A member of the RNA family "L31-Firmicutes ribosomal protein leader" from Alloiococcus otitis, 34 nucleotides long. NCBI's taxonomy places the organism under Bacteria, Bacillati, Bacillota, Lactobacillales, Alloiococcus otitis. It is one of the family's seed sequences. It is annotated as a cis-regulatory leader. The family is grouped with related families in Rfam's "Ribosomal Protein L31 Leader clan".

RNA sequence: CUAUGAUUUCGCAAAGAAUUCAUGGCGUAAGGAG
Number, nucleotide and partner (000 for none) at each position: 001c025002u024003a023004u022005g021006a000007u000008u018009u017010c016011g000012c000013a000014a000015a000016g010017a009018a008019u000020u000021c005022a004023u003024g002025g001026c000027g000028u000029a000030a000031g000032g000033a000034g000